[Rfam]
RNA sequence: GCUUGGUCCGAGGGGUGUUCUGGUGAAACGGAACUGAGAUGGCUUAGAGCCGAACCCUUAGAACCUGAUCCGGGUCAUGCCGGCGAAGGGACGGAAACCUUUAGCCUA
Numbered sequence: 001g002c003u004u005g006g007u008c009c010g011a012g013g014g015g016u017g018u019u020c021u022g023g024u025g026a027a028a029c030g031g032a033a034c035u036g037a038g039a040u041g042g043c044u045u046a047g048a049g050c051c052g053a054a055c056c057c058u059u060a061g062a063a064c065c066u067g068a069u070c071c072g073g074g075u076c077a078u079g080c081c082g083g084c085g086a087a088g089g090g091a092c093g094g095a096a097a098c099c100u101u102u103a104g105c106c107u108a
Stems, first nucleotide, its partner, number of pairs: 007095004011058004016052001017034005041051004064089003070083004

The record is a 108-nucleotide RNA from Roseibium limicola, which matches "TPP riboswitch aptamer (THI element)" in Rfam. The family's consensus secondary structure is taken from published work. Its family is annotated with thiamine pyrophosphate binding in the Gene Ontology.